The record is an 88-nucleotide RNA from Desulfosalsimonas propionicica, which matches "Selenocysteine transfer RNA" in Rfam. A search with the family's covariance model found it, with a score of 53 bits. Taxonomically the source falls in Desulfosalsimonas (Bacteria, Desulfobacteria, Desulfobacterales, Desulfosalsimonadaceae).

RNA sequence: AGGGGCAAUGGUGCUGGGCACCCCGCGGUCUUCAAAACCGCCGGCUUCGUCUGAAAAACGAAGAGGAGGUUCGAUUCCCCUUGCCCCU
Numbered sequence: 001a002g003g004g005g006c007a008a009u010g011g012u013g014c015u016g017g018g019c020a021c022c023c024c025g026c027g028g029u030c031u032u033c034a035a036a037a038c039c040g041c042c043g044g045c046u047u048c049g050u051c052u053g054a055a056a057a058a059c060g061a062a063g064a065g066g067a068g069g070u071u072c073g074a075u076u077c078c079c080c081u082u083g084c085c086c087c088u
Stems, first nucleotide, its partner, number of pairs: 001088008010022005024043001025041005045063005066080001068078002